[Rfam]
RNA sequence: UGCAGAGUAGGGUCACGCGCGUAUAGUGUCCUGGGAUGGGAUGUCGCCCAGGAACGAAAGGUCUUUUCCGGCCUGCGGUGCGGUCCCGCGUCCGCUGCG
Numbered sequence: 001u002g003c004a005g006a007g008u009a010g011g012g013u014c015a016c017g018c019g020c021g022u023a024u025a026g027u028g029u030c031c032u033g034g035g036a037u038g039g040g041a042u043g044u045c046g047c048c049c050a051g052g053a054a055c056g057a058a059a060g061g062u063c064u065u066u067u068c069c070g071g072c073c074u075g076c077g078g079u080g081c082g083g084u085c086c087c088g089c090g091u092c093c094g095c096u097g098c099g
Base pairs, nucleotide, nucleotide: 001099002098003097004096005095010087011086012085014083016082017081018080019079020077021076022075026055027054029053030052031051032050033049034048035047039093040092041091042090043089059074060073061072062071
Rfam assigns this 99-nucleotide sequence from Guopingia tenuis to the family "THF (Tetrahydrofolate) riboswitch aptamer". The organism belongs to Guopingia, within Bacteria. The literature on the family includes a 2014 paper in Chem Biol by Trausch and Batey, "A disconnect between high-affinity binding and efficient regulation by antifolates and purines in the tetrahydrofolate riboswitch". Rfam 15.1 lists 747 matches to the family in 747 species. Pairs were carried over by alignment from the consensus structure, which is taken from published work.